Rfam assigns this 72-nucleotide sequence from Atribacter laminatus to the family "tRNA". Rfam links the family to the GO term triplet codon-amino acid adaptor activity. Lineage of the source: Bacteria > Pseudomonadati > Atribacteria > Atribacteraceae > Atribacter. Rfam classes the family as a transfer RNA.
RNA sequence: GGCGGCAUAGCCAAGCGGCUAAGGCAGAGGACUGCAAAUCCUUCAUCCUCGGUUCAAGUCCGAGUGCCGCCU
Numbered sequence: 001g002g003c004g005g006c007a008u009a010g011c012c013a014a015g016c017g018g019c020u021a022a023g024g025c026a027g028a029g030g031a032c033u034g035c036a037a038a039u040c041c042u043u044c045a046u047c048c049u050c051g052g053u054u055c056a057a058g059u060c061c062g063a064g065u066g067c068c069g070c071c072u
Stems, first nucleotide, its partner, number of pairs: 001071007010025003027043005048064005
Dot-bracket structure: (((((((..(((..........))).(((((.......)))))....(((((.......)))))))))))).

About this RNA: The base pairs follow the family's consensus structure, which is taken from published work.